[Rfam]
RNA sequence: UUCAUAGAUACAGCUUUAGAAGACAAAUGAUGGAUUCUAAAAUUUGUAUCUAUGCUGGUUCUUUUGAUUGAUUAAGAUAUCAAACCACAUAGAUAACUAUCUAUGUGGUUUUUGUGUAAG
Numbered sequence: 001u002u003c004a005u006a007g008a009u010a011c012a013g014c015u016u017u018a019g020a021a022g023a024c025a026a027a028u029g030a031u032g033g034a035u036u037c038u039a040a041a042a043u044u045u046g047u048a049u050c051u052a053u054g055c056u057g058g059u060u061c062u063u064u065u066g067a068u069u070g071a072u073u074a075a076g077a078u079a080u081c082a083a084a085c086c087a088c089a090u091a092g093a094u095a096a097c098u099a100u101c102u103a104u105g106u107g108g109u110u111u112u113u114g115u116g117u118a119a120g
Stems, first nucleotide, its partner, number of pairs: 003054009015041007084109011
Dot-bracket structure: ..(((((((((...(((((((.............)))))))....))))))))).............................(((((((((((....)))))))))))...........
RNA: trpB ncRNA motif
Organism: Candidatus Enterococcus clewellii